A member of the RNA family "UnaL2 LINE 3' element" from Coregonus sp. 'balchen', 54 nucleotides long.
The match comes from Rfam's covariance-model search (61 bits).
NCBI's taxonomy places the organism under Eukaryota, Metazoa, Euteleosteomorpha, Protacanthopterygii, Coregonus.
Rfam's curators write: The eel long interspersed element (LINE) UnaL2 and its partner short interspersed element (SINE) share a conserved 3' tail containing a stem-loop that is critical for their retrotransposition.
On this family, see Baba et al., RNA 2004: "Solution structure of an RNA stem-loop derived from the 3' conserved region of eel LINE UnaL2".
[Rfam]
RNA sequence: CCUCAUAAAAUGUGUAAGUCGCUCUGGAUAAGAGCGUCUGUUAAAUGACGUAUA
Numbered sequence: 001c002c003u004c005a006u007a008a009a010a011u012g013u014g015u016a017a018g019u020c021g022c023u024c025u026g027g028a029u030a031a032g033a034g035c036g037u038c039u040g041u042u043a044a045a046u047g048a049c050g051u052a053u054a
Stems, first nucleotide, its partner, number of pairs: 013043001014041003020036006